The record is a 531-nucleotide part of an RNA from Halonotius sp. J07HN4, which matches "Archaeal large subunit ribosomal RNA" in Rfam. Rfam links the family to the GO terms ribosome and structural constituent of ribosome. The match comes from Rfam's covariance-model search (2697 bits).
RNA sequence: CUACUGUGCCAGCUGGUGAACGGCUCGGCUCGAGUGCCGAUGACGGACGUGCCAAGCUGCGAUAAGCCUACGGGAGCCGCAUGGAGGCGAAGAACGUAGGAUCUCCGAAUGGGAAUCCCUUCACAAUUGCCUUGCGCAAUAGGGAACGUCGGGAAUUGAAACAUCUUAGUACCGACAGGAAAAGAACGCAACCGCGAUAUCGUUAGUAACCGCGAGUGAACACGACACAGUCCAAACCGAAGGUCGUUAGACCAAUGUGGUGUCAGGACUGACUUUCACCGAUCGAACGCUUUUGAGAAGUCUUCUGGAACGGAGCGUGAUACAGGGUGACAACCCCGUAUCAAAAGCAAGUACAUCGCGCGUCAGCUCCAGAGUAGCAUGGGUCGGAAUUCCCGUGUGAACACCUCAGGCAUCCCCUGAGAAGACUAAACACUCCUCGAGACCGAUAGCGAACAAGUAGCGUGAGCGAACGCUGAAAAGCACUCCGAGAAGGACCGUGCAAUAGGGCCCGAAAUCAGCUGGCGAUCGAAC
Numbered sequence: 001c002u003a004c005u006g007u008g009c010c011a012g013c014u015g016g017u018g019a020a021c022g023g024c025u026c027g028g029c030u031c032g033a034g035u036g037c038c039g040a041u042g043a044c045g046g047a048c049g050u051g052c053c054a055a056g057c058u059g060c061g062a063u064a065a066g067c068c069u070a071c072g073g074g075a076g077c078c079g080c081a082u083g084g085a086g087g088c089g090a091a092g093a094a095c096g097u098a099g100g101a102u103c104u105c106c107g108a109a110u111g112g113g114a115a116u117c118c119c120u121u122c123a124c125a126a127u128u129g130c131c132u133u134g135c136g137c138a139a140u141a142g143g144g145a146a147c148g149u150c151g152g153g154a155a156u157u158g159a160a161a162c163a164u165c166u167u168a169g170u171a172c173c174g175a176c177a178g179g180a181a182a183a184g185a186a187c188g189c190a191a192c193c194g195c196g197a198u199a200u201c202g203u204u205a206g207u208a209a210c211c212g213c214g215a216g217u218g219a220a221c222a223c224g225a226c227a228c229a230g231u232c233c234a235a236a237c238c239g240a241a242g243g244u245c246g247u248u249a250g251a252c253c254a255a256u257g258u259g260g261u262g263u264c265a266g267g268a269c270u271g272a273c274u275u276u277c278a279c280c281g282a283u284c285g286a287a288c289g290c291u292u293u294u295g296a297g298a299a300g301u302c303u304u305c306u307g308g309a310a311c312g313g314a315g316c317g318u319g320a321u322a323c324a325g326g327g328u329g330a331c332a333a334c335c336c337c338g339u340a341u342c343a344a345a346a347g348c349a350a351g352u353a354c355a356u357c358g359c360g361c362g363u364c365a366g367c368u369c370c371a372g373a374g375u376a377g378c379a380u381g382g383g384u385c386g387g388a389a390u391u392c393c394c395g396u397g398u399g400a401a402c403a404c405c406u407c408a409g410g411c412a413u414c415c416c417c418u419g420a421g422a423a424g425a426c427u428a429a430a431c432a433c434u435c436c437u438c439g440a441g442a443c444c445g446a447u448a449g450c451g452a453a454c455a456a457g458u459a460g461c462g463u464g465a466g467c468g469a470a471c472g473c474u475g476a477a478a479a480g481c482a483c484u485c486c487g488a489g490a491a492g493g494a495c496c497g498u499g500c501a502a503u504a505g506g507g508c509c510c511g512a513a514a515u516c517a518g519c520u521g522g523c524g525a526u527c528g529a530a531c
Stems, first nucleotide, its partner, number of pairs: 007524010022509001023473002027444002029441006036433001044107004048061003067100006076088003111120003126140005147178001148176005158165002188195002200225004209217002229427004237260003242253004270365004280358004294343003300316001302315004319323001325337003377398007405421005460467002